[Rfam]
RNA sequence: UCCUCCUACACAGGCGUGUCUUUUGCUCCCCAACUUUGAACAUGUAAGAAUUGGAGCCAAAGAAAUGGGGAAUUGGAGACAUGUAGAGAUGGCUUGUUCUCCACAGGCUCAAGAUCAACUGUCCCACAUAA
Numbered sequence: 001u002c003c004u005c006c007u008a009c010a011c012a013g014g015c016g017u018g019u020c021u022u023u024u025g026c027u028c029c030c031c032a033a034c035u036u037u038g039a040a041c042a043u044g045u046a047a048g049a050a051u052u053g054g055a056g057c058c059a060a061a062g063a064a065a066u067g068g069g070g071a072a073u074u075g076g077a078g079a080c081a082u083g084u085a086g087a088g089a090u091g092g093c094u095u096g097u098u099c100u101c102c103a104c105a106g107g108c109u110c111a112a113g114a115u116c117a118a119c120u121g122u123c124c125c126a127c128a129u130a131a
Base pairs, nucleotide, nucleotide: 003056004055005054006053015044016043017042018041019040021038025029069124070123071122073121091109092108093107094106095105096104097103
Small nucleolar RNA SNORA38: a 131-nucleotide sequence from Octodon degus. By type it is an H/ACA-box small nucleolar RNA. The family's consensus secondary structure was predicted with RNAfold. Rfam links the family to the GO terms Cajal body, nucleolus and RNA processing.